The family of this 45-nucleotide sequence from Lactiplantibacillus plantarum is "PreQ1 (pre queuosine) riboswitch aptamer". Rfam 15.1 lists 873 matches to the family in 692 species. For this family Rfam cites "Comparison of a preQ1 riboswitch aptamer in metabolite-bound and free states with implications for gene regulation" (Jenkins et al., J Biol Chem, 2011). Pairs were carried over by alignment from the consensus structure.
[Rfam]
RNA sequence: GCUGGCCUGGUUCGUAAACUUCCCAGGAUAAAAAACCAAGAACUU
Numbered sequence: 001g002c003u004g005g006c007c008u009g010g011u012u013c014g015u016a017a018a019c020u021u022c023c024c025a026g027g028a029u030a031a032a033a034a035a036c037c038a039a040g041a042a043c044u045u
Stems, first nucleotide, its partner, number of pairs: 006027005015038001